RNA sequence: AGCAAAAUGAUGAGUUAUUGUAGCUGAAGCCUCAUGUUGAGCUCUUAUCAAACCUUUAUGGUCUUCAAAGUUCUCUGAUUGCU
Number, nucleotide and partner (000 for none) at each position: 001a083002g082003c081004a080005a079006a000007a000008u000009g000010a000011u000012g000013a000014g000015u000016u000017a000018u000019u000020g000021u000022a000023g000024c000025u000026g000027a000028a000029g000030c000031c000032u000033c000034a000035u000036g000037u000038u000039g000040a000041g000042c000043u000044c000045u000046u000047a000048u000049c000050a000051a000052a000053c000054c000055u000056u000057u000058a000059u000060g000061g000062u000063c000064u000065u000066c000067a000068a000069a000070g000071u000072u000073c000074u000075c000076u000077g000078a000079u005080u004081g003082c002083u001
Annotation
The record is an 83-nucleotide RNA from Apium graveolens, which matches "Small nucleolar RNA R160" in Rfam. Gene Ontology terms of the family: RNA processing and nucleolus. Rfam's curators write: snoR160 is a C/D box small nucleolar RNA, which acts as a methylation guide for 25S ribosomal RNA in plants. snoR160 has been alternatively named snoZ270 in rice. Rfam classes the family as a C/D-box small nucleolar RNA. It scores 62 bits against the family's covariance model. The literature on the family includes a 2003 paper in Nucleic Acids Res by Chen et al., "The high diversity of snoRNAs in plants: identification and comparative study of 120 snoRNA genes from Oryza sativa". NCBI's taxonomy places the organism under Eukaryota, Streptophyta, asterids, Apiineae, Apium.